[Rfam]
RNA: FMN riboswitch aptamer (RFN element)
RNA sequence: GAUAAUCUUCGGGGCAGGGUGUGAUUCCCUACCGGCGGUACAGCCCGCGACCCGCAUAAGCGGUUGAUUUGGUGAGAUUCCAAAGCCGACAGUAUAGUCUGGAUGAAAGAAGAUAAGC
Numbered sequence: 001g002a003u004a005a006u007c008u009u010c011g012g013g014g015c016a017g018g019g020u021g022u023g024a025u026u027c028c029c030u031a032c033c034g035g036c037g038g039u040a041c042a043g044c045c046c047g048c049g050a051c052c053c054g055c056a057u058a059a060g061c062g063g064u065u066g067a068u069u070u071g072g073u074g075a076g077a078u079u080c081c082a083a084a085g086c087c088g089a090c091a092g093u094a095u096a097g098u099c100u101g102g103a104u105g106a107a108a109g110a111a112g113a114u115a116a117g118c
Base pairs, nucleotide, nucleotide: 003116005114006113007112008111009110010109017029018028019027031098032097033088034087035048036047037046038045043086044085052063053062068084069083070082071081072080090101091100092099